[Rfam]
This 36-nucleotide sequence belongs to the Rfam family "DUF805b RNA".

RNA sequence: UAGGCGAAUCCCGAAAAGCCUUAGAUAGAGUAGGAA
Numbered sequence: 001u002a003g004g005c006g007a008a009u010c011c012c013g014a015a016a017a018g019c020c021u022u023a024g025a026u027a028g029a030g031u032a033g034g035a036a
Stems, first nucleotide, its partner, number of pairs: 002021004011034002